[Rfam]
RNA sequence: AUGUUAUCAAGAAAGGUGGAGGGAAUAGACCCUAUGAAACCUUAGCAACCCUUUGCUCAGUCAAAGAAGGUGCUAAAUUCUACCCAAAAAAUAUCGGGAUAGAUAACAA
Number, nucleotide and partner (000 for none) at each position: 001a000002u108003g107004u106005u105006a104007u103008c102009a000010a000011g000012a000013a043014a042015g041016g040017u039018g000019g000020a000021g032022g031023g030024a000025a000026u082027a081028g080029a079030c023031c022032c021033u000034a000035u000036g000037a000038a000039a017040c016041c015042u014043u013044a074045g073046c072047a071048a000049c070050c069051c066052u065053u064054u063055g000056c000057u000058c000059a000060g000061u000062c000063a054064a053065a052066g051067a000068a000069g050070g049071u047072g046073c045074u044075a000076a000077a000078u101079u029080c028081u027082a026083c098084c097085c096086a000087a094088a000089a000090a000091a000092u000093a000094u087095c000096g085097g084098g083099a000100u000101a078102g008103a007104u006105a005106a004107c003108a002109a000

SAM riboswitch aptamer (S box leader): a 109-nucleotide sequence from Tenacibaculum jejuense. For this family Rfam cites "The S box regulon: a new global transcription termination control system for methionine and cysteine biosynthesis genes in gram-positive bacteria" (Grundy and Henkin, Mol Microbiol, 1998). The source organism's lineage runs through Bacteria, Bacteroidota, Flavobacteriales, Flavobacteriaceae and Tenacibaculum. The match comes from Rfam's covariance-model search (86 bits).